[Rfam]
Source information: Rfam assigns this 101-nucleotide sequence from Cladocopium goreaui to the family "Mitochondrial DNA control region secondary structure A". The organism belongs to Cladocopium, within Eukaryota. By type it is an antisense RNA.
RNA sequence: UGUAUGAAUGUGCAAAUGAAUGCAUACAUGCAUGUAUGCAUUUAUGCAUGUAUGCAUUUAUGCAUGUAUGCAUUUAUGCAUGUAUGCAUUUAUAAUGUGUA
Numbered sequence: 001u002g003u004a005u006g007a008a009u010g011u012g013c014a015a016a017u018g019a020a021u022g023c024a025u026a027c028a029u030g031c032a033u034g035u036a037u038g039c040a041u042u043u044a045u046g047c048a049u050g051u052a053u054g055c056a057u058u059u060a061u062g063c064a065u066g067u068a069u070g071c072a073u074u075u076a077u078g079c080a081u082g083u084a085u086g087c088a089u090u091u092a093u094a095a096u097g098u099g100u101a
Stems, first nucleotide, its partner, number of pairs: 001092002004089003012079003020033005034055002037052004060073005